Shown here is a 192-nucleotide RNA from Deinococcus peraridilitoris, a member of the family "FMN riboswitch aptamer (RFN element)". Pairs were carried over by alignment from the consensus structure, which is taken from published work. The source organism's lineage runs through Bacteria, Thermotogati, Deinococci, Deinococcaceae and Deinococcus peraridilitoris. A search with the family's covariance model found it, with a score of 88 bits.

RNA sequence: GCCAUCCUUCGGGGCGGGGUGAAAUUCCCCACCGGCGGUGAUCAGGCCGAGAGAAGAAUUGGUCUGUCAGCCCGCGAAGCCAAGCCAGAUUGCAAGACGGCGAGGCCCGACCCGGUGCAACUCCGGGGCCGACGGUGACGAAGCCGCGUUCAGACAGACGCUGCCUCUUAGUCCGGAUGAGAGAAGGAGGAG
Number, nucleotide and partner (000 for none) at each position: 001g000002c000003c190004a000005u188006c187007c186008u185009u184010c183011g000012g000013g000014g000015c000016g000017g029018g028019g027020u000021g000022a000023a000024a000025u000026u000027c019028c018029c017030c000031a000032c000033c131034g130035g075036c074037g073038g072039u000040g000041a000042u000043c000044a000045g000046g000047c000048c000049g000050a000051g000052a000053g000054a000055a000056g000057a000058a000059u000060u000061g000062g000063u000064c000065u000066g000067u000068c000069a000070g129071c128072c038073c037074g036075c035076g000077a000078a000079g106080c105081c000082a000083a000084g000085c000086c000087a000088g000089a000090u000091u000092g000093c000094a000095a000096g000097a000098c000099g000100g000101c000102g000103a000104g000105g080106c079107c000108c000109g000110a000111c127112c126113c125114g124115g123116u000117g000118c000119a000120a000121c000122u000123c115124c114125g113126g112127g111128g071129c070130c034131g033132a000133c175134g174135g173136u000137g000138a000139c000140g000141a000142a000143g000144c000145c000146g000147c000148g000149u000150u000151c000152a000153g000154a000155c000156a000157g000158a000159c000160g000161c000162u000163g000164c000165c000166u000167c000168u000169u000170a000171g000172u000173c135174c134175g133176g000177a000178u000179g000180a000181g000182a000183g010184a009185a008186g007187g006188a005189g000190g003191a000192g000